[Rfam]
RNA sequence: GGCAAGAGUAGAAGCGUUCACCAGUGGCACCUCCCCGGUGCCAUUGACCGGAAAUUGCUCUUGAG
Dot-bracket structure: ....((((((....[..((..((((((((((.....))))))))))...]))...))))))....
The record is a 65-nucleotide RNA from Aquabacterium soli, which matches "Xanthine riboswitch aptamer (NMT1 RNA)" in Rfam. A reference for the family is Yu and Breaker (2020), "A bacterial riboswitch class senses xanthine and uric acid to regulate genes associated with purine oxidation", RNA. A search with the family's covariance model found it, with a score of 45 bits.